[Rfam]
RNA sequence: GGCCUGAUAAGACGCGUCAAGCGUCGCAUCAGGCAUUGUGCGCCAACUGCCGGAUGCGGCGUGAACGCCUUAUCCGGCC
Numbered sequence: 001g002g003c004c005u006g007a008u009a010a011g012a013c014g015c016g017u018c019a020a021g022c023g024u025c026g027c028a029u030c031a032g033g034c035a036u037u038g039u040g041c042g043c044c045a046a047c048u049g050c051c052g053g054a055u056g057c058g059g060c061g062u063g064a065a066c067g068c069c070u071u072a073u074c075c076g077g078c079c
Stems, first nucleotide, its partner, number of pairs: 002034007011025004049078008058069004
Dot-bracket structure: .(((((((..((((.......))))..)))))))..............((((((((.((((....)))).)))))))).
Nucleoid-associated noncoding RNA 4 (CssrE): a 79-nucleotide RNA sequence from Shigella flexneri. It is annotated as a small RNA. For this family Rfam cites "A New Noncoding RNA Arranges Bacterial Chromosome Organization" (Qian et al., MBio, 2015). The base pairs follow the family's consensus structure, which is taken from published work. The match comes from Rfam's covariance-model search (61 bits). From the family's description: In E. coli small RNA transcribed from repeated extragenic palindromic element (REP325) called nucleoid-associated ncRNA 4 (nRNA4) collaborates HU protein in condensing the DNA. The secondary structure but not the sequence of the RNA is important in nucleoid condensation. Also identified in Shigella as CssrE. Rfam 15.1 lists 870 matches to the family in 32 species.